[Rfam]
RNA: GP20-b RNA
RNA sequence: UGCCGUGGCAGGCGUAAAACGAGCCGACAGCAGGGGACGCAACCCCCAUAUAACAAAGCAUA
Numbered sequence: 001u002g003c004c005g006u007g008g009c010a011g012g013c014g015u016a017a018a019a020c021g022a023g024c025c026g027a028c029a030g031c032a033g034g035g036g037a038c039g040c041a042a043c044c045c046c047c048a049u050a051u052a053a054c055a056a057a058g059c060a061u062a
Base pairs, nucleotide, nucleotide: 001014002013003012004011006026007025008024009023033047034046035045036044